[Rfam]
RNA sequence: AUAGGACGCUCUAAUGUGGACAUGGUGCGAAGAGCCUAUUGAGCUAGUUAGUAGUCCUCCGGCCCCUGAAUGCGGCUAAUCCUAACUGCGGAGCACAUGCCUUCAACCCAGAGGGUAGUGUGUCGUAACGGGCAACUCUGCAGCGGAACCGACUACUUUGGGUGUCCGUGUUUCUUUUUAUUCUCAUAUUGGCUGCUUAUGGUGACAAUUACAGAAUUGUUACCAUAUAGCUAUUGGAUUGGCCAUCCGGUG
Numbered sequence: 001a002u003a004g005g006a007c008g009c010u011c012u013a014a015u016g017u018g019g020a021c022a023u024g025g026u027g028c029g030a031a032g033a034g035c036c037u038a039u040u041g042a043g044c045u046a047g048u049u050a051g052u053a054g055u056c057c058u059c060c061g062g063c064c065c066c067u068g069a070a071u072g073c074g075g076c077u078a079a080u081c082c083u084a085a086c087u088g089c090g091g092a093g094c095a096c097a098u099g100c101c102u103u104c105a106a107c108c109c110a111g112a113g114g115g116u117a118g119u120g121u122g123u124c125g126u127a128a129c130g131g132g133c134a135a136c137u138c139u140g141c142a143g144c145g146g147a148a149c150c151g152a153c154u155a156c157u158u159u160g161g162g163u164g165u166c167c168g169u170g171u172u173u174c175u176u177u178u179u180a181u182u183c184u185c186a187u188a189u190u191g192g193c194u195g196c197u198u199a200u201g202g203u204g205a206c207a208a209u210u211a212c213a214g215a216a217u218u219g220u221u222a223c224c225a226u227a228u229a230g231c232u233a234u235u236g237g238a239u240u241g242g243c244c245a246u247c248c249g250g251u252g
Stems, first nucleotide, its partner, number of pairs: 004012003020026002034196002042194005051182001060168003064162003073151003080147003086143007094122004098117007123131003198227013
The record is a 252-nucleotide RNA from Enterovirus alphacoxsackie, which matches "Picornavirus internal ribosome entry site (IRES)" in Rfam. Lineage of the source: Viruses > Pisoniviricetes > Enterovirus > Enterovirus alphacoxsackie > Enterovirus A. On this family, see Liu et al., Virology 1999: "Structural and functional analysis of the 5' untranslated region of coxsackievirus B3 RNA: In vivo translational and infectivity studies of full-length mutants". Rfam describes the family as follows. This family represents the Picornavirus internal ribosome entry site (IRES). IRES elements allow cap and end-independent translation of mRNA in the host cell. It has been found that La autoantigen (La) is required for Coxsackievirus B3 (CVB3) IRES-mediated translation, and it has been suggested that La may be required for the efficient translation of the viral RNA in the pancreas.